RNA sequence: AAGUUUUGGUUGUGUUUCGCUUGUAUAUUUCCAUAAUAAGGUUGGAAGUUUCUACGAUUAACCGAAUAUUAAUCACUACAAGCGAAAUGUUUUUUCGA
Dot-bracket structure: .................((((((((...(((((.........)))))........((((((.......))))))..))))))))..............